The family of this 72-nucleotide sequence from Alligator sinensis is "Mammalian CPEB3 ribozyme".
A search with the family's covariance model found it, with a score of 43 bits.
The organism belongs to Alligator, within Eukaryota.
[Rfam]
RNA sequence: CAAGUUUGAGGCCACAGCAGAAGCGUUCGUGGCGUGGCCUGUCAGGUUCCAACAAAAUCUGCAGAUUCUGCU
Numbered sequence: 001c002a003a004g005u006u007u008g009a010g011g012c013c014a015c016a017g018c019a020g021a022a023g024c025g026u027u028c029g030u031g032g033c034g035u036g037g038c039c040u041g042u043c044a045g046g047u048u049c050c051a052a053c054a055a056a057a058u059c060u061g062c063a064g065a066u067u068c069u070g071c072u
Stems, first nucleotide, its partner, number of pairs: 010039004016072007023035003043061006